[Rfam]
RNA: ZMP/ZTP riboswitch aptamer (pfl RNA motif)
Organism: Luteipulveratus halotolerans
RNA sequence: CUGGUGCCACACGACUGGCGCAGGUGGGCCACCACCAGGGAGUGAAGUCGAGCGCAUCGAACGCCUGGGUGCUGCUC
Numbered sequence: 001c002u003g004g005u006g007c008c009a010c011a012c013g014a015c016u017g018g019c020g021c022a023g024g025u026g027g028g029c030c031a032c033c034a035c036c037a038g039g040g041a042g043u044g045a046a047g048u049c050g051a052g053c054g055c056a057u058c059g060a061a062c063g064c065c066u067g068g069g070u071g072c073u074g075c076u077c
Stems, first nucleotide, its partner, number of pairs: 003049003010044003015039002017065004024035004054072005